[Rfam]
RNA sequence: CAUCGAGAUGAAGAGUAAUUUUCCGGAAUUCAUACAUGUCGAUCGAAUAAAAUUCAGACUACAAUUAUCUGAUCGAUG
Numbered sequence: 001c002a003u004c005g006a007g008a009u010g011a012a013g014a015g016u017a018a019u020u021u022u023c024c025g026g027a028a029u030u031c032a033u034a035c036a037u038g039u040c041g042a043u044c045g046a047a048u049a050a051a052a053u054u055c056a057g058a059c060u061a062c063a064a065u066u067a068u069c070u071g072a073u074c075g076a077u078g
Base pairs, nucleotide, nucleotide: 001078002077003076004075005074006073
Rfam assigns this 78-nucleotide RNA sequence from Cuscuta europaea to the family "Small nucleolar RNA Z155". The literature on the family includes a 2003 paper in Nucleic Acids Res by Chen et al., "The high diversity of snoRNAs in plants: identification and comparative study of 120 snoRNA genes from Oryza sativa". It scores 53 bits against the family's covariance model.